[Rfam]
Nucleotides: 173
Base pairs, nucleotide, nucleotide: 001173002172003171004170005169006168007167010066011065012064013063016060017059018058019057020056021055022054023053024052025051026050027049028048029047032043033042034041035040072129073128074127075126076125077124078123079122082119083118084117085116089112090111091110092109093108094107095106133164134163135162136161137160138159139158144154145153146152147151
Number, partner (000 for none) and nucleotide at each position: 001173a002172u003171a004170g005169g006168c007167u008000a009000u010066c011065g012064u013063c014000c015000u016060g017059u018058u019057g020056a021055c022054a023053a024052u025051c026050a027049g028048c029047c030000g031000u032043c033042a034041u035040g036000c037000u038000c039000g040035c041034a042033u043032g044000u045000a046000a047029g048028g049027c050026u051025g052024a053023u054022u055021g056020u057019u058018a059017a060016u061000u062000g063013g064012a065011c066010g067000a068000u069000g070000u071000a072129a073128c074127a075126g076125g077124a078123a079122u080000g081000a082119g083118g084117a085116u086000g087000c088000a089112g090111c091110g092109c093108u094107g095106c096000g097000a098000g099000c100000a101000a102000g103000c104000g105000a106095g107094c108093a109092g110091u111090g112089c113000g114000a115000a116085a117084u118083c119082c120000g121000a122079a123078u124077u125076u126075c127074u128073g129072u130000u131000a132000a133164g134163a135162a136161u137160u138159g139158c140000g141000a142000g143000a144154g145153c146152a147151c148000g149000a150000a151147g152146u153145g154144c155000g156000g157000a158139g159138c160137a161136a162135u163134u164133c165000u166000a167007a168006g169005c170004u171003u172002a173001u